[Rfam]
RNA sequence: UUGACGGUGUCCUCCCACGUGCCGGGAUCGGCGUCCAUCGCGGAGUCGCCGAAGUGGUCGCCGUCGACGAGCAGGCCGACCACGGUGUCGUCGCCGUACUCACCGGCCCGGUGCACGCCCGCCUUGCCGUGGGCCAUGAGGUAGACGUGGUCGACGGGGGCGCCCGCGGCGGCGAUGACGUCGCCGGGACCGUGUUCACGCUGCUCGAAGCGCUCGGCCAGGGCCGCGAGCGCGGCCUCGUCGGCGAAGCCGCGCAGCGCCGGGAGUUCGGCCAGUUCCGGCGGGACGACGCGCACGUCGCUCCCGGUGGUGAUGAAGCUGACCCGGCCGUCGCCGACGGUGUAGGUCAGCCGCCGGUUCACCCGGUAGGUGCCGCCGUCGACCUGCACCCACGGCAGGACACGGAGCAGCCAACGGGAGGUGAUCCCCUGCAUCUGCGGCGGAGUCUUGGUCGUCGUCGCCAGAUUUCGCGCCGCCGCGGUACCGAGGCUCAGCUGCUCGGAUUGCGG
Number, nucleotide and partner (000 for none) at each position: 001u000002u000003g000004a000005c000006g390007g389008u388009g387010u386011c000012c000013u000014c000015c000016c000017a000018c381019g380020u000021g328022c327023c000024g325025g324026g000027a000028u322029c321030g320031g319032c318033g000034u316035c315036c000037a000038u313039c312040g311041c310042g000043g308044a000045g000046u000047c000048g302049c000050c300051g299052a298053a000054g233055u232056g000057g000058u229059c228060g227061c226062c000063g224064u223065c113066g112067a000068c110069g000070a000071g000072c000073a000074g000075g103076c000077c000078g101079a100080c000081c000082a097083c096084g095085g094086u093087g000088u000089c000090g000091u000092c000093g086094c085095c084096g083097u082098a000099c000100u079101c078102a000103c075104c000105g000106g000107c000108c000109c000110g068111g000112u066113g065114c000115a000116c000117g000118c222119c221120c000121g219122c217123c216124u000125u000126g213127c212128c000129g000130u209131g206132g205133g204134c203135c000136a000137u000138g199139a000140g197141g000142u000143a196144g195145a000146c000147g000148u000149g000150g191151u000152c000153g000154a000155c188156g000157g000158g185159g184160g000161c000162g000163c000164c000165c174166g173167c172168g000169g000170c000171g000172g167173c166174g165175a000176u000177g000178a000179c000180g000181u000182c000183g000184c159185c158186g000187g000188g155189a000190c000191c150192g000193u000194g000195u144196u143197c140198a000199c138200g000201c000202u000203g134204c133205u132206c131207g000208a000209a130210g000211c000212g127213c126214u000215c000216g123217g122218c000219c121220a000221g119222g118223g064224c063225c000226g061227c060228g059229a058230g000231c000232g055233c054234g296235g000236c000237c293238u000239c000240g290241u289242c288243g287244g000245c285246g000247a000248a000249g282250c281251c280252g279253c000254g278255c000256a277257g276258c275259g000260c271261c270262g269263g000264g000265a000266g000267u000268u000269c262270g261271g260272c000273c000274a000275g258276u257277u256278c254279c252280g251281g250282c249283g000284g000285g245286a000287c243288g242289a241290c240291g000292c000293g237294c000295a000296c234297g000298u052299c051300g050301c000302u048303c000304c000305c000306g000307g000308u043309g000310g041311u040312g039313a038314u000315g035316a034317a000318g032319c031320u030321g029322a028323c000324c025325c024326g000327g022328c021329c342330g341331u340332c339333g000334c000335c000336g000337a000338c000339g332340g331341u330342g329343u000344a000345g000346g000347u000348c000349a000350g000351c000352c378353g377354c000355c375356g374357g373358u000359u000360c372361a371362c370363c369364c000365g000366g000367u000368a000369g363370g362371u361372g360373c357374c356375g355376c000377c353378g352379u000380c019381g018382a000383c000384c000385u000386g010387c009388a008389c007390c006391c431392a430393c000394g428395g427396c000397a425398g000399g000400a422401c421402a000403c418404g000405g000406a000407g415408c000409a000410g000411c000412c000413a000414a000415c407416g000417g000418g403419a000420g000421g401422u400423g000424a000425u397426c000427c395428c394429c000430u392431g391432c000433a000434u000435c000436u000437g476438c475439g474440g473441c000442g471443g000444a000445g468446u000447c000448u464449u463450g462451g461452u460453c000454g000455u000456c000457g000458u000459c000460g452461c451462c450463a449464g448465a000466u000467u000468u445469c000470g000471c442472g000473c440474c439475g438476c437477c508478g507479c000480g505481g504482u503483a000484c502485c501486g500487a499488g498489g000490c000491u000492c000493a000494g000495c000496u000497g000498c488499u487500c486501g485502g484503a482504u481505u480506g000507c478508g477509g000